Shown here is a 513-nucleotide part of an RNA from Fasciola hepatica, a member of the family "Eukaryotic large subunit ribosomal RNA". NCBI's taxonomy places the organism under Eukaryota, Eumetazoa, Bilateria, Neodermata, Fasciola. Its family is annotated with ribosome and structural constituent of ribosome in the Gene Ontology.
RNA sequence: CAACGGUGGCAGCAGGUAAUCAAGUUAGGACCUUCAAGGCUGAGGUGGAGAAGGGUUCCACGGGAACAGAAGUUGGCUAUGGGUCAGGCGGUCCUAAGUGGUCCGGCAAAUCCGUGUAGAGAAGGGGUGCCUGACAUUGUCAGGAGUGCUGCCAAUGUACUGUUGUACGGUAGCCUCCUGUAGUGAAAGAGAAUCGGGUUAAUGUUCCCGACCCUGCCCACGAAGAUUGGUGUAUUCUGGCUUCGAUCAGUUUGCACCUGGCGCGGUAACGCAAUCGACCUCGGAGACGUCGGCGAGAGUUCUAGGCAGAGUUAUAUUUUCUCUACCAGGAAAGCGCCAUCCCCUGGAGACGGGUUGUCCGGAGAUAGAGGACUAGCCUUUGUAAAGCACACCCUUCUUGUGGCGUCCGGAACACUCUUGUCGGCCCUUGAAAUCCGAGCGAGGCUAUAAACUUUUUGUGGCAGGCCGUACCCAUAUCCGCAUCAGGUCUCCAAGGUGAACAGCCCCUGGCAC
Numbered sequence: 001c002a003a004c005g006g007u008g009g010c011a012g013c014a015g016g017u018a019a020u021c022a023a024g025u026u027a028g029g030a031c032c033u034u035c036a037a038g039g040c041u042g043a044g045g046u047g048g049a050g051a052a053g054g055g056u057u058c059c060a061c062g063g064g065a066a067c068a069g070a071a072g073u074u075g076g077c078u079a080u081g082g083g084u085c086a087g088g089c090g091g092u093c094c095u096a097a098g099u100g101g102u103c104c105g106g107c108a109a110a111u112c113c114g115u116g117u118a119g120a121g122a123a124g125g126g127g128u129g130c131c132u133g134a135c136a137u138u139g140u141c142a143g144g145a146g147u148g149c150u151g152c153c154a155a156u157g158u159a160c161u162g163u164u165g166u167a168c169g170g171u172a173g174c175c176u177c178c179u180g181u182a183g184u185g186a187a188a189g190a191g192a193a194u195c196g197g198g199u200u201a202a203u204g205u206u207c208c209c210g211a212c213c214c215u216g217c218c219c220a221c222g223a224a225g226a227u228u229g230g231u232g233u234a235u236u237c238u239g240g241c242u243u244c245g246a247u248c249a250g251u252u253u254g255c256a257c258c259u260g261g262c263g264c265g266g267u268a269a270c271g272c273a274a275u276c277g278a279c280c281u282c283g284g285a286g287a288c289g290u291c292g293g294c295g296a297g298a299g300u301u302c303u304a305g306g307c308a309g310a311g312u313u314a315u316a317u318u319u320u321c322u323c324u325a326c327c328a329g330g331a332a333a334g335c336g337c338c339a340u341c342c343c344c345u346g347g348a349g350a351c352g353g354g355u356u357g358u359c360c361g362g363a364g365a366u367a368g369a370g371g372a373c374u375a376g377c378c379u380u381u382g383u384a385a386a387g388c389a390c391a392c393c394c395u396u397c398u399u400g401u402g403g404c405g406u407c408c409g410g411a412a413c414a415c416u417c418u419u420g421u422c423g424g425c426c427c428u429u430g431a432a433a434u435c436c437g438a439g440c441g442a443g444g445c446u447a448u449a450a451a452c453u454u455u456u457u458g459u460g461g462c463a464g465g466c467c468g469u470a471c472c473c474a475u476a477u478c479c480g481c482a483u484c485a486g487g488u489c490u491c492c493a494a495g496g497u498g499a500a501c502a503g504c505c506c507c508u509g510g511c512a513c
Stems, first nucleotide, its partner, number of pairs: 020036001022034003039511003047492004053472002058082003062078002067075002089468003094189001098184002100117001104114003124177005194211005214464004219460005224454002230272003280439006289425004294420007302410002305327002308324003331381004341371002344368003351361003388405001390402003478487002495505003